[Rfam]
RNA: GP20-b RNA
RNA sequence: GGUCUGUAAGCUGAGACCUAAAAGGCAGCAGAAUCACAGGGCGACGGUUAAAGCCCUAAAACAACCUA
Number, nucleotide and partner (000 for none) at each position: 001g018002g017003u016004c015005u000006g000007u000008a000009a000010g029011c028012u027013g026014a000015g004016a003017c002018c001019u000020a000021a000022a000023a000024g000025g000026c013027a012028g011029c010030a000031g000032a000033a000034u000035c000036a000037c000038a000039g056040g055041g054042c053043g000044a000045c000046g000047g000048u000049u000050a000051a000052a000053g042054c041055c040056c039057u000058a000059a000060a000061a000062c000063a000064a000065c000066c000067u000068a000